[Rfam]
RNA sequence: GAGGGAAGCUCAUCAGUGGGGCUACGAACUGAGUGCGUUGCGUCACUCUACCCCAUGUCCCUUGGGAAGGUCUGAGACUAGGGCCAAAUAGCGGCCCUAACAGGGCCCUCCCUGAACCGCGGGGAGGUGAGUUCCCAGAGAACGGGGCUCUGCGCGAGGGCAGACUGGGCAGGAGAUGCCGAGGACCCCACCCUAGGGGUGGGGCCCGGCGGAUGCCUCCUUAGCCGGAGCUUGGAACAGACUCACGGCCAGCGAAGUGAGUUCAAUGGCUGAGUUGGGGCUGGGGUUGUAGCUCAGCAGUAGAAUGCUCACCUC
Dot-bracket structure: ........((((.(...((((.........((((((.....).)))))..........))))...................((((.......(((((.....)))))((((((.......))))))(((((((.............((((((.........................................................................))))))........)))))))))))..................).))))..((((...............................))))
Nuclear RNase P: a 315-nucleotide RNA from Spermophilus dauricus.